[Rfam]
RNA: Bacteroidales small SRP
Organism: Muribaculaceae bacterium Isolate-037
RNA sequence: UUGCAGUGGGUGAGUCCUGCACGACGUGCUCCCCGUAAAUCCCCCAGAUCUUGACCGAAGCAAGGGUAGCGGGUUGAGCUGUGCGAUGCAGAUCGCUCAUCCACUU
Numbered sequence: 001u002u003g004c005a006g007u008g009g010g011u012g013a014g015u016c017c018u019g020c021a022c023g024a025c026g027u028g029c030u031c032c033c034c035g036u037a038a039a040u041c042c043c044c045c046a047g048a049u050c051u052u053g054a055c056c057g058a059a060g061c062a063a064g065g066g067u068a069g070c071g072g073g074u075u076g077a078g079c080u081g082u083g084c085g086a087u088g089c090a091g092a093u094c095g096c097u098c099a100u101c102c103a104c105u106u
Base pairs, nucleotide, nucleotide: 008102009101010100011099012098013097014096015095017091018090019089020088021087022085023084024082025081